[Rfam]
RNA sequence: UCGAGACGACGUGAUUGGAUGCGGCCGUAGAUGGAUAAACUGGCGGCGGACCGUGCUUGGGCCCCGACUCGUAUCACUGAUCGAGUCAGUGCUUGACGCGCAGCCCCCGACCGGUCCGCCCAUGAAUAGCCAGCAGCCGCUGCAACCCCAGGGAG
Number, nucleotide and partner (000 for none) at each position: 001u000002c000003g000004a000005g000006a000007c000008g000009a000010c000011g000012u000013g000014a000015u000016u000017g000018g000019a000020u000021g000022c000023g000024g000025c000026c000027g000028u000029a000030g000031a000032u000033g000034g000035a000036u000037a000038a000039a000040c000041u000042g000043g000044c000045g000046g000047c000048g117049g116050a115051c114052c113053g112054u000055g000056c000057u000058u109059g108060g107061g106062c000063c000064c000065c000066g000067a000068c000069u000070c000071g000072u000073a000074u000075c000076a000077c000078u000079g000080a000081u000082c000083g000084a000085g000086u000087c000088a000089g000090u000091g000092c000093u000094u000095g000096a000097c000098g000099c000100g000101c000102a000103g000104c000105c000106c061107c060108c059109g058110a000111c000112c053113g052114g051115u050116c049117c048118g000119c000120c000121c000122a000123u000124g000125a000126a000127u000128a000129g000130c000131c142132a141133g140134c139135a000136g000137c000138c000139g134140c133141u132142g131143c000144a000145a000146c000147c000148c000149c000150a000151g000152g000153g000154a000155g000